[Rfam]
RNA sequence: CCCUUAACUAUUAAAAGUUUCGUUUUGGUCCCUUAAUUUAUUUUUUGGUUUCGUUUUGGUCACUUAACUUAUUUUUUGAUUUCGUUUUGGUCCUUAACUCUAAUAGAUUCAUUCUAACAUAAAGGAUCAAAGUGGUUGACGGAAGAAGAGUUAAGGGACCAAAAUGAAACCAAAAAAUAAGUUAAGGGACCAAAACGAAACUUUUAAUAGUUAAGGGA
Numbered sequence: 001c002c003c004u005u006a007a008c009u010a011u012u013a014a015a016a017g018u019u020u021c022g023u024u025u026u027g028g029u030c031c032c033u034u035a036a037u038u039u040a041u042u043u044u045u046u047g048g049u050u051u052c053g054u055u056u057u058g059g060u061c062a063c064u065u066a067a068c069u070u071a072u073u074u075u076u077u078g079a080u081u082u083c084g085u086u087u088u089g090g091u092c093c094u095u096a097a098c099u100c101u102a103a104u105a106g107a108u109u110c111a112u113u114c115u116a117a118c119a120u121a122a123a124g125g126a127u128c129a130a131a132g133u134g135g136u137u138g139a140c141g142g143a144a145g146a147a148g149a150g151u152u153a154a155g156g157g158a159c160c161a162a163a164a165u166g167a168a169a170c171c172a173a174a175a176a177a178u179a180a181g182u183u184a185a186g187g188g189a190c191c192a193a194a195a196c197g198a199a200a201c202u203u204u205u206a207a208u209a210g211u212u213a214a215g216g217g218a
Base pairs, nucleotide, nucleotide: 002216003215004214005213006212007211008210023195024194025193027191028190029189031187032186033185034184035183036182037181038180039179040178041177042176043175045173046172047171
Rfam assigns this 218-nucleotide sequence from Medicago truncatula to the family "MIR2655 microRNA precursor family".
Its family is annotated with RISC complex and miRNA-mediated post-transcriptional gene silencing in the Gene Ontology.